[Rfam]
RNA sequence: AAAAUAGUCCAAGUUCUUCGGAACGCGGAUCUGUUCCUCCGGUUGUCCUGAAGUACGGACCAUCAGAGAUGAAAGCGUGGUUUUUAUGGAUGUCUUUUGUCCACGCGGAACGCCCUUCAGACCCUUCAGGGUGCUCUUGGAGCGGAUACAAAAACUGGUCCCCGUC
Numbered sequence: 001a002a003a004a005u006a007g008u009c010c011a012a013g014u015u016c017u018u019c020g021g022a023a024c025g026c027g028g029a030u031c032u033g034u035u036c037c038u039c040c041g042g043u044u045g046u047c048c049u050g051a052a053g054u055a056c057g058g059a060c061c062a063u064c065a066g067a068g069a070u071g072a073a074a075g076c077g078u079g080g081u082u083u084u085u086a087u088g089g090a091u092g093u094c095u096u097u098u099g100u101c102c103a104c105g106c107g108g109a110a111c112g113c114c115c116u117u118c119a120g121a122c123c124c125u126u127c128a129g130g131g132u133g134c135u136c137u138u139g140g141a142g143c144g145g146a147u148a149c150a151a152a153a154a155c156u157g158g159u160c161c162c163c164g165u166c
Stems, first nucleotide, its partner, number of pairs: 007030004014023003035072002037068003041064001045060003089160003092155002095153006113145002115142004128138004
A member of the RNA family "Ascomycota telomerase RNA" from Emericellopsis cladophorae, 166 nucleotides of a longer RNA.
Pairs were carried over by alignment from the consensus structure.
It scores 284 bits against the family's covariance model.
Its family is annotated with telomerase catalytic core complex, telomerase activity and telomere maintenance via telomerase in the Gene Ontology.
Its Rfam clan is "Telomerase clan".
The literature on the family includes a 2013 paper in Nucleic Acids Res by Qi et al., "The common ancestral core of vertebrate and fungal telomerase RNAs".